Record summary:
This 109-nucleotide sequence from Devosia sp. A8/3-2 belongs to the Rfam family "EcpR1". From the family's description: Perviously named SmelC291, SmrC10, or Sra33.

[Rfam]
RNA sequence: CUCCCUACGGCCUGUCUCGGGAAUGCCGCAACUCCUGAGCCCCGUGGGGCGGCUGGUCCGGACGGAUAGAGUGGCCUCUUCUGACAUGCCGCUCCGGACCAGCCACUCA
Numbered sequence: 001c002u003c004c005c006u007a008c009g010g011c012c013u014g015u016c017u018c019g020g021g022a023a024u025g026c027c028g029c030a031a032c033u034c035c036u037g038a039g040c041c042c043c044g045u046g047g048g049g050c051g052g053c054u055g056g057u058c059c060g061g062a063c064g065g066a067u068a069g070a071g072u073g074g075c076c077u078c079u080u081c082u083g084a085c086a087u088g089c090c091g092c093u094c095c096g097g098a099c100c101a102g103c104c105a106c107u108c109a
Base pairs, nucleotide, nucleotide: 003049004048005047006046007045008044009043010042016039017038018037019036020035021034051104052103053102054101055100056099057098058097059096060095061094

Rfam classes the family as a small RNA. The organism belongs to Devosia, within Bacteria. Gene Ontology terms of the family: regulation of translation in response to stress, negative regulation of cell cycle and mRNA binding.